[Rfam]
This 87-nucleotide RNA sequence from Aegilops tauschii belongs to the Rfam family "MIR1120/MIR1122 microRNA precursor family". On this family, see Yao et al., Genome Biol 2007: "Cloning and characterization of microRNAs from wheat (Triticum aestivum L.)". The organism belongs to Aegilops tauschii, within Eukaryota. Its family is annotated with miRNA-mediated post-transcriptional gene silencing and RISC complex in the Gene Ontology. The family's consensus secondary structure was predicted with RNAalifold. A search with the family's covariance model found it, with a score of 92 bits.
RNA sequence: CUACUCCCUCCGUCCCGUAAUAUAAGAACGUUUUCGACACUAGUGUAGUGUUAAAAACGUUCUUAUAUUUUGGGACAGAGGUAGUAG
Numbered sequence: 001c002u003a004c005u006c007c008c009u010c011c012g013u014c015c016c017g018u019a020a021u022a023u024a025a026g027a028a029c030g031u032u033u034u035c036g037a038c039a040c041u042a043g044u045g046u047a048g049u050g051u052u053a054a055a056a057a058c059g060u061u062c063u064u065a066u067a068u069u070u071u072g073g074g075a076c077a078g079a080g081g082u083a084g085u086a087g
Base pairs, nucleotide, nucleotide: 003085004084005083007081008080009079010078013075014074015073016072017071019069020068021067022066023065024064025063026062027061028060029059030058031057032056033055034054036052037051038050039049040048041047